[Rfam]
RNA: LOOT RNA
RNA sequence: GGCCCAAACUUAGUAGCCCCAAGUGGGUAAAAGGCAUGGUUAUUCAAAACCGUUCAAAGCAUACGACGCUCGUCGUUAGGUUUUGCUUUGAACGGUCGCACGCAGGAAUGUGUGUGGGGUUCCGGAAACGGGAUC
Numbered sequence: 001g002g003c004c005c006a007a008a009c010u011u012a013g014u015a016g017c018c019c020c021a022a023g024u025g026g027g028u029a030a031a032a033g034g035c036a037u038g039g040u041u042a043u044u045c046a047a048a049a050c051c052g053u054u055c056a057a058a059g060c061a062u063a064c065g066a067c068g069c070u071c072g073u074c075g076u077u078a079g080g081u082u083u084u085g086c087u088u089u090g091a092a093c094g095g096u097c098g099c100a101c102g103c104a105g106g107a108a109u110g111u112g113u114g115u116g117g118g119g120u121u122c123c124g125g126a127a128a129c130g131g132g133a134u135c
Base pairs, nucleotide, nucleotide: 001041002040003039004038009034010033011032014029015028050095051094052093053092054091055090056089057088058087059086060085062080065077066076067075097116098115099114100113101112102111103110104109118135119134120133121132122131123130